[Rfam]
RNA sequence: UCGGCCCCGGUUCACGUCUUCCGCAAUCCGCGGAGGCGACCCGGUGCC
Numbered sequence: 001u002c003g004g005c006c007c008c009g010g011u012u013c014a015c016g017u018c019u020u021c022c023g024c025a026a027u028c029c030g031c032g033g034a035g036g037c038g039a040c041c042c043g044g045u046g047c048c
Stems, first nucleotide, its partner, number of pairs: 003048003007044004015038005021033003